[Rfam]
RNA sequence: UCCGUUCGGGUCCGUGGUUGCGUCGUCAGCUGGCUCGAUGAGCCUUGGCGACAAGCCGAAGCCAGUCGCAGGCGAAACGGCCCACGUAAGUCCACGGUCGGGACAUCGCUUCCCGGGUGCGGACGAUCACGGUGCGGCUUAGAAGUAAGUCCUGCCCCGGCCCUGUCGUCAGACACGGCGGUCCGUCGGGAGAAGGUGGGUAGUGGCACCAAGCCGCGAGAACCUCAGCAGGCGGUUGUGGGGUCGAAGACCAGGUCGGCCGAGCGGA
Numbered sequence: 001u002c003c004g005u006u007c008g009g010g011u012c013c014g015u016g017g018u019u020g021c022g023u024c025g026u027c028a029g030c031u032g033g034c035u036c037g038a039u040g041a042g043c044c045u046u047g048g049c050g051a052c053a054a055g056c057c058g059a060a061g062c063c064a065g066u067c068g069c070a071g072g073c074g075a076a077a078c079g080g081c082c083c084a085c086g087u088a089a090g091u092c093c094a095c096g097g098u099c100g101g102g103a104c105a106u107c108g109c110u111u112c113c114c115g116g117g118u119g120c121g122g123a124c125g126a127u128c129a130c131g132g133u134g135c136g137g138c139u140u141a142g143a144a145g146u147a148a149g150u151c152c153u154g155c156c157c158c159g160g161c162c163c164u165g166u167c168g169u170c171a172g173a174c175a176c177g178g179c180g181g182u183c184c185g186u187c188g189g190g191a192g193a194a195g196g197u198g199g200g201u202a203g204u205g206g207c208a209c210c211a212a213g214c215c216g217c218g219a220g221a222a223c224c225u226c227a228g229c230a231g232g233c234g235g236u237u238g239u240g241g242g243g244u245c246g247a248a249g250a251c252c253a254g255g256u257c258g259g260c261c262g263a264g265c266g267g268a
Base pairs, nucleotide, nucleotide: 001268002267003266004265005264006263007262008261009260012259013258014257015253016252017251018250019249059239061237062072064139065138066137067136068135069134070133081132082131086127090124091123092122093121095119096118130246151232152231153230154229155228156190157189158188159187160186194225195224196223197222203217204216205215206214207213
RNA: raiA RNA